[Rfam]
RNA sequence: AAAAACCUUCAGGGAUUGGUGAAAUUCCAUACCGGCGGUAAAGCCCGCGAGCCUUAUGGCAGAUCUGGUUAGAUUCCAGAGCCGACAGUAAAGUCUGGAUGAAAGAAGGUAAAU
Numbered sequence: 001a002a003a004a005a006c007c008u009u010c011a012g013g014g015a016u017u018g019g020u021g022a023a024a025u026u027c028c029a030u031a032c033c034g035g036c037g038g039u040a041a042a043g044c045c046c047g048c049g050a051g052c053c054u055u056a057u058g059g060c061a062g063a064u065c066u067g068g069u070u071a072g073a074u075u076c077c078a079g080a081g082c083c084g085a086c087a088g089u090a091a092a093g094u095c096u097g098g099a100u101g102a103a104a105g106a107a108g109g110u111a112a113a114u
Base pairs, nucleotide, nucleotide: 005110006109007108008107009106010105017029018028019027031094032093033084034083035048036047037046038045043082044081051060052059053058064080065079066078067077068076086097087096088095

Rfam assigns this 114-nucleotide RNA from Thermoanaerobacterium thermosaccharolyticum to the family "FMN riboswitch aptamer (RFN element)". Pairs were carried over by alignment from the consensus structure, which is taken from published work. Taxonomically the source falls in Thermoanaerobacterium thermosaccharolyticum (Bacteria, Bacillota, Clostridia, Thermoanaerobacterales).